[Rfam]
RNA sequence: GGGGGUUUAGCUCAGUGGUAGAGCGUCCGCUUUGCAGGCACUUAUUGCCAUGUCAGCGUGCGGAAGGCCGAGGUUUCGAUCACCUCAUCCUCCA
Numbered sequence: 001g002g003g004g005g006u007u008u009a010g011c012u013c014a015g016u017g018g019u020a021g022a023g024c025g026u027c028c029g030c031u032u033u034g035c036a037g038g039c040a041c042u043u044a045u046u047g048c049c050a051u052g053u054c055a056g057c058g059u060g061c062g063g064a065a066g067g068c069c070g071a072g073g074u075u076u077c078g079a080u081c082a083c084c085u086c087a088u089c090c091u092c093c094a
Stems, first nucleotide, its partner, number of pairs: 001093005007087001010024004026064005070086005
RNA: tRNA